[Rfam]
Nucleotides: 082
Base pairs, nucleotide, nucleotide: 001081002080003079004078005077006076007075010026011025012024028044029043030042031041032040058074059073060072061071062070
Number, partner (000 for none) and nucleotide at each position: 001081a002080u003079c004078c005077g006076a007075g008000u009000g010026c011025u012024g013000g014000a015000a016000u017000u018000g019000g020000u021000a022000g023000a024012c025011a026010g027000u028044c029043u030042u031041a032040g033000c034000u035000u036000a037000a038000g039000u040032u041031u042030a043029a044028g045000u046000g047000a048000c049000g050000c051000a052000a053000g054000u055000c056000g057000u058074a059073a060072a061071c062070g063000u064000u065000c066000g067000a068000a069000u070062c071061g072060u073059u074058u075007c076006u077005c078004g079003g080002a081001u082000a
Background
The family of this 82-nucleotide RNA from Aspergillus nidulans is "tRNA". It is annotated as a transfer RNA. The sequence is in the family's curated seed alignment.